[Rfam]
RNA sequence: GGAAAAUUGAUCAUCGGCAAGAUAAGUUAUUUACUAAAUAAUAGGAUUUAAUAACCUGGUGAGUUCGAAUCUCACAUUUUCCG
Numbered sequence: 001g002g003a004a005a006a007u008u009g010a011u012c013a014u015c016g017g018c019a020a021g022a023u024a025a026g027u028u029a030u031u032u033a034c035u036a037a038a039u040a041a042u043a044g045g046a047u048u049u050a051a052u053a054a055c056c057u058g059g060u061g062a063g064u065u066c067g068a069a070u071c072u073c074a075c076a077u078u079u080u081c082c083g
Stems, first nucleotide, its partner, number of pairs: 001082007010023003026042005059075005

Rfam assigns this 83-nucleotide RNA sequence from Wickerhamomyces canadensis to the family "tRNA". The base pairs follow the family's consensus structure, which is taken from published work. The family's RNA type in Rfam is transfer RNA.